MIR2655 microRNA precursor family: a 237-nucleotide RNA sequence from Medicago truncatula. Rfam 15.1 lists 892 matches to the family in 5 species. NCBI's taxonomy places the organism under Eukaryota, Euphyllophyta, Mesangiospermae, Fabaceae, Medicago.
Nucleotides: 237
Base pairs, nucleotide, nucleotide: 002235003234004233005232006231007230008229023214024213025212027210028209029208031206032205033204034203035202036201037200038199039198040197041196042195043194045192046191047190
Number, partner (000 for none) and nucleotide at each position: 001000c002235c003234c004233a005232u006231a007230a008229g009000u010000a011000a012000u013000a014000a015000g016000a017000g018000g019000u020000c021000u022000g023214u024213u025212u026000a027210g028209g029208u030000c031206c032205c033204u034203u035202a036201a037200c038199u039198u040197u041196a042195u043194u044000u045192a046191a047190a048000g049000u050000a051000u052000c053000g054000g055000u056000u057000u058000g059000g060000u061000c062000a063000u064000u065000u066000c067000u068000g069000u070000u071000a072000a073000u074000u075000u076000a077000a078000u079000u080000a081000u082000a083000a084000a085000a086000a087000a088000a089000a090000c091000g092000u093000u094000a095000a096000a097000u098000u099000u100000u101000a102000a103000u104000c105000c106000c107000u108000u109000a110000a111000c112000u113000u114000a115000u116000u117000u118000a119000a120000u121000u122000a123000g124000u125000a126000g127000u128000a129000g130000u131000u132000u133000g134000a135000u136000c137000c138000c139000u140000a141000c142000a143000c144000u145000u146000a147000a148000c149000g150000u151000u152000u153000u154000u155000u156000u157000g158000a159000a160000a161000c162000a163000a164000a165000u166000u167000a168000a169000c170000a171000u172000a173000a174000a175000g176000g177000a178000c179000c180000a181000a182000a183000c184000u185000g186000a187000u188000a189000a190047u191046u192045u193000a194043a195042a196041u197040a198039a199038a200037g201036u202035u203034a204033a205032g206031g207000g208029a209028c210027c211000u212025a213024a214023a215000c216000a217000g218000a219000c220000a221000u222000u223000u224000u225000a226000u227000u228000a229008c230007u231006u232005a233004u234003g235002g236000g237000a